[Rfam]
RNA sequence: UGUAACACCCAUCAAAGGAGUAGUUCCUCACUUUGGAGCUAGUUUACCAUAUUAGGAAUUC
Numbered sequence: 001u002g003u004a005a006c007a008c009c010c011a012u013c014a015a016a017g018g019a020g021u022a023g024u025u026c027c028u029c030a031c032u033u034u035g036g037a038g039c040u041a042g043u044u045u046a047c048c049a050u051a052u053u054a055g056g057a058a059u060u061c
Base pairs, nucleotide, nucleotide: 017045018044019043021041022040023039024038025037026036027035